The record is a 44-nucleotide RNA from Yoonia ponticola, which matches "Guanidine-II riboswitch aptamer (mini-ykkC)" in Rfam. A search with the family's covariance model found it, with a score of 39 bits. The base pairs follow the family's consensus structure, which is taken from published work.
[Rfam]
RNA sequence: UGCGGGACGACCUGCGCUUUCCUUUUUAUUCCGGGACGACCCGG
Dot-bracket structure: ((((((....))))))..............(((((....)))))